SAM (S-adenosyl methionine) riboswitch aptamer: a 120-nucleotide RNA from Rhodococcus tukisamuensis. It scores 108 bits against the family's covariance model. Rfam's curators write: SAM-IV is a mRNA element that regulates gene expression via direct sensing of S-adenosylmethionine (SAM or AdoMet). SAM-IV riboswitches share conserved nucleotide positions with the previously described SAM-I riboswitches sequence analysis and molecular recognition experiments suggest that SAM-I and SAM-IV riboswitches share similar ligand binding sites, but have different scaffolds.

RNA sequence: GGUCAAGAGUUCCAGCGUCAAGCCCCGGCUCGCUGGUCGGCAACCCUCCAUCCGCGGUGGGGUGCCCCGGGUGAAGACCUGGUUGUUCGAAGCAGAAGUGUCGGAUGACAAGCGCGGGUC
Numbered sequence: 001g002g003u004c005a006a007g008a009g010u011u012c013c014a015g016c017g018u019c020a021a022g023c024c025c026c027g028g029c030u031c032g033c034u035g036g037u038c039g040g041c042a043a044c045c046c047u048c049c050a051u052c053c054g055c056g057g058u059g060g061g062g063u064g065c066c067c068c069g070g071g072u073g074a075a076g077a078c079c080u081g082g083u084u085g086u087u088c089g090a091a092g093c094a095g096a097a098g099u100g101u102c103g104g105a106u107g108a109c110a111a112g113c114g115c116g117g118g119u120c
Stems, first nucleotide, its partner, number of pairs: 001079004009038001012036005021030002039066003044062003048057002082109009
Lineage of the source: Bacteria > Bacillati > Actinomycetes > Mycobacteriales > Rhodococcus. Pairs were carried over by alignment from the consensus structure, which is taken from published work.